[Rfam]
RNA sequence: AGAGGUUGCACGUUCGAGCCACAGCAGAAGUGUACACGGCAUGACCCUACCAGAUUCCAGUGAAUCUAUGAAUUCUGCU
Numbered sequence: 001a002g003a004g005g006u007u008g009c010a011c012g013u014u015c016g017a018g019c020c021a022c023a024g025c026a027g028a029a030g031u032g033u034a035c036a037c038g039g040c041a042u043g044a045c046c047c048u049a050c051c052a053g054a055u056u057c058c059a060g061u062g063a064a065u066c067u068a069u070g071a072a073u074u075c076u077g078c079u
Base pairs, nucleotide, nucleotide: 016047018045020043023079024078025077026076027075028074029073030042031041032040052067053066054065055064056063057062

Rfam assigns this 79-nucleotide RNA sequence from Alligator mississippiensis to the family "Mammalian CPEB3 ribozyme".
Pairs were carried over by alignment from the consensus structure, which is taken from published work.
Gene Ontology term of the family: RNA nuclease activity.
The organism belongs to Alligator, within Eukaryota.